[Rfam]
RNA sequence: GCGUUCAACUAACCUGUUCUUUUUUGACUUCUUUUUUAUCUCCUAGCAUUGGGGGCAGAAGUCGUUUACUGAAAGAAAAGUCAAAAACGAACAGAAAGCCUCCCAAACGGGAGGCUUUUUUAAU
Numbered sequence: 001g002c003g004u005u006c007a008a009c010u011a012a013c014c015u016g017u018u019c020u021u022u023u024u025u026g027a028c029u030u031c032u033u034u035u036u037u038a039u040c041u042c043c044u045a046g047c048a049u050u051g052g053g054g055g056c057a058g059a060a061g062u063c064g065u066u067u068a069c070u071g072a073a074a075g076a077a078a079a080g081u082c083a084a085a086a087a088c089g090a091a092c093a094g095a096a097a098g099c100c101u102c103c104c105a106a107a108c109g110g111g112a113g114g115c116u117u118u119u120u121u122a123a124u
Base pairs, nucleotide, nucleotide: 016092017091018090019089021087022086023085024084025083026082027081028080029079030078032076033075034074036072037071038070042052043051054063055062056061095118096117097116098115099114100113101112102111103110104109

Phenylalanine leader peptide: a 124-nucleotide RNA sequence from Vibrio nigripulchritudo. Rfam links the family to the GO term cellular amino acid metabolic process. For this family Rfam cites "Nucleotide sequence of the leader region of the phenylalanine operon of Escherichia coli" (Zurawski et al., Proc Natl Acad Sci U S A, 1978).